[Rfam]
RNA sequence: ACGCACGUUGCAACCCCGGGCUUCUCUGAAAUUUAAAGGAAGUGAAAGCCCCAUUGCACGUGCUAAAUUGAUGCCAUUCGUGUUGCAGUUCAUCUCGUUAAUUCCACGAUUGAUCUGUGUCAAAGUAAUGGCUACAUCG
Numbered sequence: 001a002c003g004c005a006c007g008u009u010g011c012a013a014c015c016c017c018g019g020g021c022u023u024c025u026c027u028g029a030a031a032u033u034u035a036a037a038g039g040a041a042g043u044g045a046a047a048g049c050c051c052c053a054u055u056g057c058a059c060g061u062g063c064u065a066a067a068u069u070g071a072u073g074c075c076a077u078u079c080g081u082g083u084u085g086c087a088g089u090u091c092a093u094c095u096c097g098u099u100a101a102u103u104c105c106a107c108g109a110u111u112g113a114u115c116u117g118u119g120u121c122a123a124a125g126u127a128a129u130g131g132c133u134a135c136a137u138c139g
Base pairs, nucleotide, nucleotide: 003063004062005061006060007059008058010057011056018051019050020049021048022047023045024044026042027041073132074131075130076129077128078127081122082121084119085118086117087116088115092110093109094108
RNA: small nucleolar RNA snoR134